[Rfam]
RNA sequence: GUUGAAAAGUAUUGGUCAUAGCAGGAGUGUUCACGCCAUGGUCCUUGUCAGGUACUGUGAAUCUGUGAAUCCUACU
Number, nucleotide and partner (000 for none) at each position: 001g000002u000003u000004g000005a000006a000007a000008a000009g000010u000011a000012u000013u000014g044015g043016u041017c040018a000019u000020a076021g075022c000023a073024g072025g071026a070027g039028u038029g037030u000031u000032c000033a000034c000035g000036c000037c029038a028039u027040g017041g016042u000043c015044c014045u000046u000047g000048u000049c065050a064051g063052g062053u061054a000055c059056u000057g000058u000059g055060a000061a053062u052063c051064u050065g049066u000067g000068a000069a000070u026071c025072c024073u023074a000075c021076u020
RNA: Mammalian CPEB3 ribozyme